[Rfam]
The family of this 74-nucleotide RNA is "RAGATH-18 RNA". Actinobacteria, Firmicutes, Fusobacteria, Thermotogae (1 example). The family's RNA type in Rfam is small RNA.
RNA sequence: CCUUUGGAGUGUACAAGAACUUGUGAGUAGUCUCAGGCUUGCCCUGGGCAAAAGCAUACACGAUGAAUAAGGAA
Numbered sequence: 001c002c003u004u005u006g007g008a009g010u011g012u013a014c015a016a017g018a019a020c021u022u023g024u025g026a027g028u029a030g031u032c033u034c035a036g037g038c039u040u041g042c043c044c045u046g047g048g049c050a051a052a053a054g055c056a057u058a059c060a061c062g063a064u065g066a067a068u069a070a071g072g073a074a
Stems, first nucleotide, its partner, number of pairs: 001072004009061005022056003030049003036044002